Annotation
Shown here is a 67-nucleotide sequence from Crocuta crocuta, a member of the family "mir-1180 microRNA precursor family". Gene Ontology terms of the family: RISC complex and miRNA-mediated post-transcriptional gene silencing. The organism belongs to Crocuta, within Eukaryota.

RNA sequence: UCUGCCUGGCCCACCCGGCUGGAAACGUGCCCCAAAUGGUUUCCGGCCCGAGUGGGUGUGUGGGAAG
Numbered sequence: 001u002c003u004g005c006c007u008g009g010c011c012c013a014c015c016c017g018g019c020u021g022g023a024a025a026c027g028u029g030c031c032c033c034a035a036a037u038g039g040u041u042u043c044c045g046g047c048c049c050g051a052g053u054g055g056g057u058g059u060g061u062g063g064g065a066a067g
Stems, first nucleotide, its partner, number of pairs: 001065003006060001009057006016050002018047009027037001